Rfam assigns this 134-nucleotide sequence from Sinomonas humi to the family "TPP riboswitch aptamer (THI element)".
The base pairs follow the family's consensus structure, which is taken from published work.
Gene Ontology term of the family: thiamine pyrophosphate binding.
Lineage of the source: Bacteria > Bacillati > Actinomycetota > Micrococcaceae > Sinomonas.
It scores 62 bits against the family's covariance model.
RNA sequence: CCUCACGACUGCGGGAGCCCGCGUGUGACGACCUGCCCAGGGCAGGCGGCGCCAGCCGGGCUGAGAGGGCUUGAGCCGACCGUAAGAACCUGAUCCGGCUUGUACCGGCGUAGGGAAGGACGAGGAUUUCGUGG
Dot-bracket structure: .....((.((((((..(((((...................................)))))......(((....)))..)))).....((((..((((......))))..))))...)).))............